[Rfam]
Nucleotides: 072
Base pairs, nucleotide, nucleotide: 002070003069004068005067006066
Number, partner (000 for none) and nucleotide at each position: 001000u002070g003069g004068a005067u006066c007000g008000a009000u010000g011000a012000u013000g014000a015000c016000u017000a018000c019000c020000g021000g022000u023000g024000g025000c026000a027000u028000a029000u030000g031000a032000g033000u034000c035000a036000u037000a038000c039000g040000u041000g042000a043000u044000g045000a046000a047000u048000g049000c050000g051000u052000g053000u054000c055000u056000g057000g058000a059000a060000c061000u062000c063000u064000g065000a066006g067005g068004u069003c070002c071000g072000u
The record is a 72-nucleotide RNA from Cercocebus atys, which matches "Small nucleolar RNA SNORD113/SNORD114 family" in Rfam.
The family's consensus secondary structure is taken from published work.
The family is grouped with related families in Rfam's "SNORD74 clan".
For this family Rfam cites "Identification of tandemly-repeated C/D snoRNA genes at the imprinted human 14q32 domain reminiscent of those at the Prader-Willi/Angelman syndrome region" (Cavaille et al., Hum Mol Genet, 2002).
Rfam describes the family as follows. The imprinted human domain at 14q32 contains two clusters of tandemly repeated small nucleolar RNAs named 14q(I) and 14q(II) snoRNAs.
Taxonomically the source falls in Cercocebus (Eukaryota, Dipnotetrapodomorpha, Simiiformes, Cercopithecinae).
The match comes from Rfam's covariance-model search (85 bits).
Gene Ontology terms of the family: nucleolus and RNA processing.
Rfam classes the family as a C/D-box small nucleolar RNA.